[Rfam]
RNA sequence: AGCUAUCGCUAGGGGUGUGUGAUGCUGAGAGUUACCCUAUAGCCUCGGGCUUAUGGUAACAACCCUCUGAACCUGACCUGGAUCAUACCAGCGUAGGGAAGCGGCCUUCAGUAUCG
Numbered sequence: 001a002g003c004u005a006u007c008g009c010u011a012g013g014g015g016u017g018u019g020u021g022a023u024g025c026u027g028a029g030a031g032u033u034a035c036c037c038u039a040u041a042g043c044c045u046c047g048g049g050c051u052u053a054u055g056g057u058a059a060c061a062a063c064c065c066u067c068u069g070a071a072c073c074u075g076a077c078c079u080g081g082a083u084c085a086u087a088c089c090a091g092c093g094u095a096g097g098g099a100a101g102c103g104g105c106c107u108u109c110a111g112u113a114u115c116g
Stems, first nucleotide, its partner, number of pairs: 006104005011066004017025003032059005072097004078091004
RNA: TPP riboswitch aptamer (THI element)